[Rfam]
RNA: Glycine riboswitch aptamer
RNA sequence: GAACGGUCAGCGGGAGAGAUCCUUUGCGCCUGAACGGGCGGAAAGGGCGCCGAAGGAGCAACCGCCCCGGAAACUCUCAGGCCAAUGGACCGCUGACUGGAU
Numbered sequence: 001g002a003a004c005g006g007u008c009a010g011c012g013g014g015a016g017a018g019a020u021c022c023u024u025u026g027c028g029c030c031u032g033a034a035c036g037g038g039c040g041g042a043a044a045g046g047g048c049g050c051c052g053a054a055g056g057a058g059c060a061a062c063c064g065c066c067c068c069g070g071a072a073a074c075u076c077u078c079a080g081g082c083c084a085a086u087g088g089a090c091c092g093c094u095g096a097c098u099g100g101a102u
Stems, first nucleotide, its partner, number of pairs: 006097008020047006049082003052078002056076003062070002